Annotation:
A member of the RNA family "SAM riboswitch aptamer (S box leader)" from Marinithermofilum abyssi, 105 nucleotides long. Pairs were carried over by alignment from the consensus structure, which is taken from published work. Rfam describes the family as follows. The SAM riboswitch is found upstream of a number of genes which code for proteins involved in methionine or cysteine biosynthesis in Gram-positive bacteria. A search with the family's covariance model found it, with a score of 98 bits.
[Rfam]
RNA sequence: UUCUUAUCCAGAGCGACGGAGGGACUGGCCCGAUGAUGUCGCGGCAACCACCCGGUUGAGGGAAUGGUGCCAAUUCCUGCAGGGGAGAGCCCUGAAAGAUGAGAA
Numbered sequence: 001u002u003c004u005u006a007u008c009c010a011g012a013g014c015g016a017c018g019g020a021g022g023g024a025c026u027g028g029c030c031c032g033a034u035g036a037u038g039u040c041g042c043g044g045c046a047a048c049c050a051c052c053c054g055g056u057u058g059a060g061g062g063a064a065u066g067g068u069g070c071c072a073a074u075u076c077c078u079g080c081a082g083g084g085g086a087g088a089g090c091c092c093u094g095a096a097a098g099a100u101g102a103g104a105a
Base pairs, nucleotide, nucleotide: 001105002104003103004102005101006100007099008098013042014041015040016039017038021031022030023029025079027077028076043071044070045069046068048067049066051062052061053060075097080094081093082092083091084090